RNA sequence: CCCUGGGCGUUGCCCAGGGCUAAGGAGUGACGGGCCUUCGGCCCU
Numbered sequence: 001c002c003c004u005g006g007g008c009g010u011u012g013c014c015c016a017g018g019g020c021u022a023a024g025g026a027g028u029g030a031c032g033g034g035c036c037u038u039c040g041g042c043c044c045u
Base pairs, nucleotide, nucleotide: 001019002018003017004016005015006014007013008012032044033043034042035041036040

Notes
Rfam assigns this 45-nucleotide RNA from Prosthecobacter gellanilyticus to the family "Acido-Lenti-1 RNA". Lineage of the source: Bacteria > Verrucomicrobiota > Verrucomicrobiales > Verrucomicrobiaceae > Prosthecobacter. The family's RNA type in Rfam is small RNA. A search with the family's covariance model found it, with a score of 40 bits.